[Rfam]
RNA sequence: UGAUGUGAAUUAAAAGAAAAGCGUAUAAUUUCGGGGAUAGGGCCCAGAGUUUCUACCAGACUACCGUAAAUGGUCUGACUACGCAAAGAUGAAAGUAAUCA
Number, nucleotide and partner (000 for none) at each position: 001u000002g000003a000004u000005g000006u000007g000008a000009a000010u000011u000012a000013a000014a000015a000016g000017a000018a000019a000020a000021g084022c083023g082024u081025a080026u000027a000028a000029u048030u047031u046032c000033g045034g044035g043036g000037a000038u000039a000040g000041g000042g000043c035044c034045c033046a031047g030048a029049g000050u000051u000052u000053c000054u000055a000056c000057c077058a076059g075060a074061c073062u072063a071064c000065c000066g000067u000068a000069a000070a000071u063072g062073g061074u060075c059076u058077g057078a000079c000080u025081a024082c023083g022084c021085a000086a000087a000088g000089a000090u000091g000092a000093a000094a000095g000096u000097a000098a000099u000100c000101a000
The record is a 101-nucleotide RNA from Oceanobacillus profundus, which matches "Purine riboswitch aptamer" in Rfam. The literature on the family includes a 2003 paper in Cell by Mandal et al., "Riboswitches Control Fundamental Biochemical Pathways in Bacillus subtilis and Other Bacteria".